[Rfam]
RNA sequence: CACCAAAGCAUUUUGUCAGGGCACCCUAUGUGAUUGCCUUAGGGCAUAUCACUUAUUCACGGUAUAGCUUGCCUGUUACAUCUUUGGAAGAUUGAUAAUCAUCGACCGGUCAAUUUUUGUAUCCAUUUUGGGUACUCGUAUUGGCCACCUCCUGUUUCGUUUUGAGACGGGAACCCAGAUGAUUCUAGGAACUUAAGAGUUGAGCUCUGCUUUUUCACUAUAGCGGAACUCGUAGUAAGAAACCUAACAUUU
Number, nucleotide and partner (000 for none) at each position: 001c000002a000003c087004c086005a085006a084007a083008g000009c000010a000011u000012u000013u000014u000015g000016u000017c000018a000019g074020g073021g072022c071023a070024c000025c000026c067027u066028a065029u000030g000031u000032g050033a049034u000035u000036g000037c000038c000039u000040u000041a000042g000043g000044g000045c000046a000047u000048a000049u033050c032051a000052c000053u000054u000055a000056u000057u000058c000059a000060c000061g000062g000063u000064a000065u028066a027067g026068c000069u000070u023071g022072c021073c020074u019075g000076u000077u000078a000079c000080a000081u000082c000083u007084u006085u005086g004087g003088a000089a000090g000091a000092u000093u000094g000095a000096u000097a000098a183099u182100c181101a180102u179103c178104g000105a000106c000107c000108g146109g145110u144111c143112a142113a141114u140115u000116u000117u000118u000119g135120u134121a133122u132123c131124c130125a000126u000127u000128u000129u000130g124131g123132g122133u121134a120135c119136u000137c000138g000139u000140a114141u113142u112143g111144g110145c109146c108147a000148c000149c000150u000151c000152c170153u169154g168155u167156u166157u165158c164159g163160u000161u000162u000163u159164g158165a157166g156167a155168c154169g153170g152171g000172a000173a000174c000175c000176c000177a000178g103179a102180u101181g100182a099183u098184u000185c000186u246187a245188g244189g243190a000191a000192c000193u239194u238195a000196a000197g000198a000199g000200u000201u232202g231203a230204g229205c000206u000207c000208u225209g224210c223211u222212u000213u000214u000215u000216c000217a000218c000219u000220a000221u000222a211223g210224c209225g208226g000227a000228a000229c204230u203231c202232g201233u000234a000235g000236u000237a000238a194239g193240a000241a000242a000243c189244c188245u187246a186247a000248c000249a000250u000251u000252u000
A member of the RNA family "Small nucleolar RNA snR191" from Brettanomyces nanus, 252 nucleotides long.
Pairs were carried over by alignment from the consensus structure, which was predicted with WAR.
It is annotated as an H/ACA-box small nucleolar RNA.
It scores 93 bits against the family's covariance model.
Rfam links the family to the GO terms RNA processing and nucleolus.
A reference for the family is Badis et al. (2003), "A snoRNA that guides the two most conserved pseudouridine modifications within rRNA confers a growth advantage in yeast", RNA.
The organism belongs to Brettanomyces, within Eukaryota.